[Rfam]
RNA sequence: GUGAAAGGAUAGAAAAAGAUUUACCAACUUGUGAUGUCUUCAAAGGAACCACUGAUGCAC
Numbered sequence: 001g002u003g004a005a006a007g008g009a010u011a012g013a014a015a016a017a018g019a020u021u022u023a024c025c026a027a028c029u030u031g032u033g034a035u036g037u038c039u040u041c042a043a044a045g046g047a048a049c050c051a052c053u054g055a056u057g058c059a060c
Stems, first nucleotide, its partner, number of pairs: 001060003004056001
This 60-nucleotide RNA from Castor canadensis belongs to the Rfam family "Small nucleolar RNA SNORD42". Lineage of the source: Eukaryota > Metazoa > Bilateria > Teleostomi > Castor. From the family's description: snoRNA U42 is found in intron 3 of the ribosomal protein L23a (RPL23a) gene in humans and is also present in mice.